[Rfam]
RNA sequence: GUUUGUAAGCGGUAUUAGGGUCCAGUUGCAUAAAGCCCCGAUUUAUCGGGGUUUUUUGUUAUUUGGCAACAAACAACUGGGCUAUUAGGCCCUUUUUUU
Numbered sequence: 001g002u003u004u005g006u007a008a009g010c011g012g013u014a015u016u017a018g019g020g021u022c023c024a025g026u027u028g029c030a031u032a033a034a035g036c037c038c039c040g041a042u043u044u045a046u047c048g049g050g051g052u053u054u055u056u057u058g059u060u061a062u063u064u065g066g067c068a069a070c071a072a073a074c075a076a077c078u079g080g081g082c083u084a085u086u087a088g089g090c091c092c093u094u095u096u097u098u099u
Stems, first nucleotide, its partner, number of pairs: 032055009079092004

Source information: A member of the RNA family "Gammaprotebacteria rimP leader" from Pectobacterium atrosepticum, 99 nucleotides long. It is one of the family's seed sequences. The base pairs follow the family's consensus structure, which is taken from published work. Rfam links the family to the GO term regulation of gene expression.